Overview:
TPP riboswitch aptamer (THI element): a 95-nucleotide RNA sequence from Methylocystis parvus. Gene Ontology term of the family: thiamine pyrophosphate binding. From the family's description: Vitamin B(1) in its active form thiamin pyrophosphate (TPP) is an essential coenzyme that is synthesised by coupling of pyrimidine and thiazole moieties in bacteria. The match comes from Rfam's covariance-model search (67 bits). The family's consensus secondary structure is taken from published work. Taxonomically the source falls in Methylocystis (Bacteria, Pseudomonadati, Alphaproteobacteria, Methylocystaceae).

[Rfam]
RNA sequence: CUCAAUGGCGAGGGGCGCCGCGCGUCGCGGCUGAGAAGCACCCGUCGAACCUGAUCCGGGUCAUGCCGGCGGAGGGAAUGCCAGGGCAGGGCGCU
Numbered sequence: 001c002u003c004a005a006u007g008g009c010g011a012g013g014g015g016c017g018c019c020g021c022g023c024g025u026c027g028c029g030g031c032u033g034a035g036a037a038g039c040a041c042c043c044g045u046c047g048a049a050c051c052u053g054a055u056c057c058g059g060g061u062c063a064u065g066c067c068g069g070c071g072g073a074g075g076g077a078a079u080g081c082c083a084g085g086g087c088a089g090g091g092c093g094c095u
Stems, first nucleotide, its partner, number of pairs: 006083005012043003016038001017031005050075003056069004